Record summary: A member of the RNA family "T-box leader" from Bacillus sp. 1NLA3E, 216 nucleotides long. It is annotated as a cis-regulatory leader. The organism belongs to Bacillus, within Bacteria. For this family Rfam cites "Interaction between the acceptor end of tRNA and the T box stimulates antitermination in the Bacillus subtilis tyrS gene: a new role for the discriminator base" (Grundy et al., J Bacteriol, 1994).

RNA sequence: AAAUGGACAUUGACAAGGAGUAGUAAUGAUUCUUGCCUGAAUUAGAGAGUUGACGGACGGUGCAAGUCAACCAGGCUUUUCAUGAACUCGCCUUUGAGUAGCAGGUGUGAAGAUUAGUAAUACUUGCCGUUUUCCGCGUUAAGGAUGAGUAAGUGAGUGUGUAAACACUAAUGUGGGUGGUACCGCGGGAGAUAUAAUAAUCCUCUCGUCCCUUUU
Numbered sequence: 001a002a003a004u005g006g007a008c009a010u011u012g013a014c015a016a017g018g019a020g021u022a023g024u025a026a027u028g029a030u031u032c033u034u035g036c037c038u039g040a041a042u043u044a045g046a047g048a049g050u051u052g053a054c055g056g057a058c059g060g061u062g063c064a065a066g067u068c069a070a071c072c073a074g075g076c077u078u079u080u081c082a083u084g085a086a087c088u089c090g091c092c093u094u095u096g097a098g099u100a101g102c103a104g105g106u107g108u109g110a111a112g113a114u115u116a117g118u119a120a121u122a123c124u125u126g127c128c129g130u131u132u133u134c135c136g137c138g139u140u141a142a143g144g145a146u147g148a149g150u151a152a153g154u155g156a157g158u159g160u161g162u163a164a165a166c167a168c169u170a171a172u173g174u175g176g177g178u179g180g181u182a183c184c185g186c187g188g189g190a191g192a193u194a195u196a197a198u199a200a201u202c203c204u205c206u207c208g209u210c211c212c213u214u215u216u
Base pairs, nucleotide, nucleotide: 007099008098015094016093017092018091026083027082028081029080037074038073039072049071050070051069052068053067054066102126103125104124105123106122107121108120128138129137130136156169157168158167159166160165175212176211177210185209186208187207188206189205190204191203